[Rfam]
RNA sequence: CCCUGUUCUCGGGGCGGGGUGCAAUUCCCCACCGGCGGUAAGCGGGUUUUCCCGCAAGCCCGCGAGCGCCUUUCGCCAGAAAGGGUCAGCAGAUCAGGUGCGAUUCCUGGGCCGACGGUCAUAGUCCGGAUGAAAGAGAGCAGAC
Numbered sequence: 001c002c003c004u005g006u007u008c009u010c011g012g013g014g015c016g017g018g019g020u021g022c023a024a025u026u027c028c029c030c031a032c033c034g035g036c037g038g039u040a041a042g043c044g045g046g047u048u049u050u051c052c053c054g055c056a057a058g059c060c061c062g063c064g065a066g067c068g069c070c071u072u073u074c075g076c077c078a079g080a081a082a083g084g085g086u087c088a089g090c091a092g093a094u095c096a097g098g099u100g101c102g103a104u105u106c107c108u109g110g111g112c113c114g115a116c117g118g119u120c121a122u123a124g125u126c127c128g129g130a131u132g133a134a135a136g137a138g139a140g141c142a143g144a145c
Stems, first nucleotide, its partner, number of pairs: 003143008017029003031125002033114002035063004058112002066090002094110005116128003
A member of the RNA family "FMN riboswitch aptamer (RFN element)" from Paracoccus aminophilus, 145 nucleotides long. The RFN element is a highly conserved domain that is found frequently in the 5'-untranslated regions of prokaryotic mRNAs that encode for flavin mononucleotide (FMN) biosynthesis and transport proteins.